[Rfam]
RNA sequence: UAACAUGAUUCGCUGAAUUUCCAGAAGAGGAAAACGGGGGAACCGAUUUGCCGUUAACGUUCGGCCGGAAAAGCAUCGACCGGACUAAGCGGCAGGGGGUGAAUUCGCGAACGGCUUCAGCCGGACGUGAAGGGGUGAUUCUCGCCACCCUAAUCCGACAGCUAACCUCGUAAGCGUAGUCCGGGAGAGGAU
Numbered sequence: 001u002a003a004c005a006u007g008a009u010u011c012g013c014u015g016a017a018u019u020u021c022c023a024g025a026a027g028a029g030g031a032a033a034a035c036g037g038g039g040g041a042a043c044c045g046a047u048u049u050g051c052c053g054u055u056a057a058c059g060u061u062c063g064g065c066c067g068g069a070a071a072a073g074c075a076u077c078g079a080c081c082g083g084a085c086u087a088a089g090c091g092g093c094a095g096g097g098g099g100u101g102a103a104u105u106c107g108c109g110a111a112c113g114g115c116u117u118c119a120g121c122c123g124g125a126c127g128u129g130a131a132g133g134g135g136u137g138a139u140u141c142u143c144g145c146c147a148c149c150c151u152a153a154u155c156c157g158a159c160a161g162c163u164a165a166c167c168u169c170g171u172a173a174g175c176g177u178a179g180u181c182c183g184g185g186a187g188a189g190g191a192u
Base pairs, nucleotide, nucleotide: 011176012175013174014173018033019032020031021030022029034171035170036169037168038167039166044096097156098155099154105130106129107128108127133150134149135148136147
The record is a 192-nucleotide RNA from Paenibacillus faecis, which matches "c-di-AMP riboswitch aptamer (ydaO/yuaA leader)" in Rfam. Its family is annotated with regulation of gene expression and cyclic-di-AMP binding in the Gene Ontology.